[Rfam]
RNA sequence: UUGGCAUGAUGAGGAAAGUUAAUUGAUCUUGUCUGAUCAACUGGAUGAAAAAAUUCCUCCUACUCAUUCUGA
Numbered sequence: 001u002u003g004g005c006a007u008g009a010u011g012a013g014g015a016a017a018g019u020u021a022a023u024u025g026a027u028c029u030u031g032u033c034u035g036a037u038c039a040a041c042u043g044g045a046u047g048a049a050a051a052a053a054u055u056c057c058u059c060c061u062a063c064u065c066a067u068u069c070u071g072a
Stems, first nucleotide, its partner, number of pairs: 006067004029050002033044001

The family of this 72-nucleotide RNA from Setaria italica is "Small nucleolar RNA Z105".
It scores 65 bits against the family's covariance model.
Taxonomically the source falls in Setaria (Eukaryota, Magnoliopsida, Mesangiospermae, Poales).
The literature on the family includes a 2003 paper in Nucleic Acids Res by Chen et al., "The high diversity of snoRNAs in plants: identification and comparative study of 120 snoRNA genes from Oryza sativa".
It is annotated as a C/D-box small nucleolar RNA.